Record summary
A member of the RNA family "Plastid-psbN 5UTR RNA" from Anisodus acutangulus, 61 nucleotides long.
RNA sequence: UUUGACACCCAUCAAAGGACUAGUUCCCCAUCUAGGAGUUACUUUACCAUAUUCUAAAUUC
Numbered sequence: 001u002u003u004g005a006c007a008c009c010c011a012u013c014a015a016a017g018g019a020c021u022a023g024u025u026c027c028c029c030a031u032c033u034a035g036g037a038g039u040u041a042c043u044u045u046a047c048c049a050u051a052u053u054c055u056a057a058a059u060u061c
Stems, first nucleotide, its partner, number of pairs: 017045003021041007

Source information
Plastid psbN is a non-coding RNA (ncRNA) recognised in plastids. It was reported as a conserved 11 stem-loop in the prime untranslated region (5UTR) of psbN genes. It has been reported that the motif is retained in a subset of mature transcripts in barley, which can suggests a possible role in transcript alternative 5 prime processing. Rfam 15.1 lists 2,345 matches to the family in 397 species. By type it is a cis-regulatory element. Taxonomically the source falls in Anisodus (Eukaryota, Embryophyta, eudicotyledons, asterids).